[Rfam]
RNA sequence: UCAUAAAGCAUUGCACCCAGAGUCUGGACUUCCAGACACUGUACCUGGCGCUUUUCUGUUUUUUUUUAAAUUUUUU
Numbered sequence: 001u002c003a004u005a006a007a008g009c010a011u012u013g014c015a016c017c018c019a020g021a022g023u024c025u026g027g028a029c030u031u032c033c034a035g036a037c038a039c040u041g042u043a044c045c046u047g048g049c050g051c052u053u054u055u056c057u058g059u060u061u062u063u064u065u066u067u068a069a070a071u072u073u074u075u076u
Stems, first nucleotide, its partner, number of pairs: 005054005017048004022037005
Dot-bracket structure: ....(((((.......((((.(((((......))))).......)))).)))))......................
The family of this 76-nucleotide RNA from Kryptolebias marmoratus is "U1A polyadenylation inhibition element (PIE)". This family represents the U1A polyadenylation inhibition element (PIE). PIE is a regulatory RNA which is responsible for the regulation of the length of the polyA tail of the U1A pre-mRNA. The PIE is located in the U1A mRNA 3' UTR. PIE adopts a U-shaped structure, with binding sites for a single U1A protein at each bend and when complexed with the two proteins it blocks activity of poly(A) polymerase (PAP), and inhibits its activity.